This 71-nucleotide RNA sequence from Diaphorina citri belongs to the Rfam family "mir-375 microRNA precursor family". The organism belongs to Diaphorina, within Eukaryota. Pairs were carried over by alignment from the consensus structure, which was predicted with RNAalifold. Gene Ontology terms of the family: RISC complex and miRNA-mediated post-transcriptional gene silencing.
RNA sequence: CUUGACUUGAGCUGUUCGAAUAAACUUGCCGCUUUUGACACAUUGGUUUGUUCGUUCGGCUCGAGUUAAGA
Dot-bracket structure: (((.(((((((((...((.((((.(...................)..)))).))...))))))))).))).